[Rfam]
Background:
NoRC associated RNA, pRNA: an 83-nucleotide sequence from Anas platyrhynchos. The family has 23 seed sequences and 354 matches in Rfam 15.1. Rfam classes the family as a non-coding RNA gene.

RNA sequence: CUCUGGUGACCUGCGUGGGGACACAGGGCCAGGGCACCUUGCGGGCUGUCCCGUGCUGGGUGCUGCCCCCCCCAGUCCUGGGG
Numbered sequence: 001c002u003c004u005g006g007u008g009a010c011c012u013g014c015g016u017g018g019g020g021a022c023a024c025a026g027g028g029c030c031a032g033g034g035c036a037c038c039u040u041g042c043g044g045g046c047u048g049u050c051c052c053g054u055g056c057u058g059g060g061u062g063c064u065g066c067c068c069c070c071c072c073c074a075g076u077c078c079u080g081g082g083g
Stems, first nucleotide, its partner, number of pairs: 004080001006078001008077002011075002018072003027064003030060001033057005